[Rfam]
RNA sequence: AGUCGUUGGUGGCACAACUUCCCAUUCAGGGCGGUUGGCUCACUCACAUAAGUACAGAUACACAAGUGCCGAAACCCGCCCCAAAAGGCGGGUUUUUUAUA
Numbered sequence: 001a002g003u004c005g006u007u008g009g010u011g012g013c014a015c016a017a018c019u020u021c022c023c024a025u026u027c028a029g030g031g032c033g034g035u036u037g038g039c040u041c042a043c044u045c046a047c048a049u050a051a052g053u054a055c056a057g058a059u060a061c062a063c064a065a066g067u068g069c070c071g072a073a074a075c076c077c078g079c080c081c082c083a084a085a086a087g088g089c090g091g092g093u094u095u096u097u098u099a100u101a
Base pairs, nucleotide, nucleotide: 009043010042011041012040016035018033020031021030022029073094074093075092076091077090078089079088
Overview
Shown here is a 101-nucleotide sequence from Xenorhabdus japonica, a member of the family "Tryptophan operon leader". Rfam links the family to the GO terms transcriptional attenuation by ribosome and tryptophan biosynthetic process. NCBI's taxonomy places the organism under Bacteria, Pseudomonadati, Pseudomonadota, Morganellaceae, Xenorhabdus. At least 6 amino acid operons are known to be regulated by attenuation. In each a leader sequence of 150-200 bp is found upstream of the first gene in the operon. This leader sequence can assume two different secondary structures known as the terminator and the anti-terminator structure. In each case the leader also codes for very short peptide sequence that is rich in the end product amino acid of the operon. The terminator structure is recognised as a termination signal for RNA polymerase and the operon is not transcribed. This structure forms when the cell has an excess of the regulatory amino acid and ribosome movement over the leader transcript is not impeded. When there is a deficiency of the charged tRNA of the regulatory amino acid the ribosome translating the leader peptide stalls and the antiterminator structure can form. This allows RNA polymerase to transcribe the operon. In the Rfam alignment the consensus structure is of the terminator structure. The literature on the family includes a 1982 paper in Annu Rev Genet by Kolter and Yanofsky, "Attenuation in amino acid biosynthetic operons". It scores 47 bits against the family's covariance model.